[Rfam]
RNA sequence: CACGCUUCUUUGCUCACAAAAGAGACACCCAGCCUAAAAACCUGGGUAUCUCACACAUAAUGCAAAUGAGAAAUUCGGAGUACUCUUCACCCCUCAACAACACCCACACCUACCAUGUGUAUGUGUGUGCGUUUGUACCGCCCGCGAGGGCCCGCCGCGAAGCGGUCGUGAUUGGCAUCAGAAACGCAGGAUUGAUGAUUGAGAUCUCAUGUUUGACCUAACCCCUCCUUCUUCACCUCCUUUGGGGGCAUUUCCGGAGGGGGGUGCGAAAACGGAGGUUUCUUUUUUUGAUUCCUAUGGGAGAGCCGUUGCGAAGAUUGUGAAUGAACACUUUAGUGCAAUGCGUGGCGUGCCCCCUAGCUUUUGCUGUCCUUUCUCUCGGAGGGGAUGGUGAGAGAGGGGGGUACAAUUCGAUUCCGAUUAUUCUGGUG
Numbered sequence: 001c002a003c004g005c006u007u008c009u010u011u012g013c014u015c016a017c018a019a020a021a022g023a024g025a026c027a028c029c030c031a032g033c034c035u036a037a038a039a040a041c042c043u044g045g046g047u048a049u050c051u052c053a054c055a056c057a058u059a060a061u062g063c064a065a066a067u068g069a070g071a072a073a074u075u076c077g078g079a080g081u082a083c084u085c086u087u088c089a090c091c092c093c094u095c096a097a098c099a100a101c102a103c104c105c106a107c108a109c110c111u112a113c114c115a116u117g118u119g120u121a122u123g124u125g126u127g128u129g130c131g132u133u134u135g136u137a138c139c140g141c142c143c144g145c146g147a148g149g150g151c152c153c154g155c156c157g158c159g160a161a162g163c164g165g166u167c168g169u170g171a172u173u174g175g176c177a178u179c180a181g182a183a184a185c186g187c188a189g190g191a192u193u194g195a196u197g198a199u200u201g202a203g204a205u206c207u208c209a210u211g212u213u214u215g216a217c218c219u220a221a222c223c224c225c226u227c228c229u230u231c232u233u234c235a236c237c238u239c240c241u242u243u244g245g246g247g248g249c250a251u252u253u254c255c256g257g258a259g260g261g262g263g264g265u266g267c268g269a270a271a272a273c274g275g276a277g278g279u280u281u282c283u284u285u286u287u288u289u290g291a292u293u294c295c296u297a298u299g300g301g302a303g304a305g306c307c308g309u310u311g312c313g314a315a316g317a318u319u320g321u322g323a324a325u326g327a328a329c330a331c332u333u334u335a336g337u338g339c340a341a342u343g344c345g346u347g348g349c350g351u352g353c354c355c356c357c358u359a360g361c362u363u364u365u366g367c368u369g370u371c372c373u374u375u376c377u378c379u380c381g382g383a384g385g386g387g388a389u390g391g392u393g394a395g396a397g398a399g400g401g402g403g404g405u406a407c408a409a410u411u412c413g414a415u416u417c418c419g420a421u422u423a424u425u426c427u428g429g430u431g
Stems, first nucleotide, its partner, number of pairs: 001347005009066004023051003027047006076419005085316004140151004154166005168312004174307003188296003350407009

Rfam assigns this 431-nucleotide RNA from Cladonia borealis to the family "Nuclear RNase P". The family's RNA type in Rfam is ribozyme. A reference for the family is Brown (1999), "The Ribonuclease P Database", Nucleic Acids Res. Ribonuclease P (RNase P) is a ubiquitous endoribonuclease, found in archaea, bacteria and eukarya as well as chloroplasts and mitochondria. The family has 116 seed sequences and 3,848 matches in Rfam 15.1.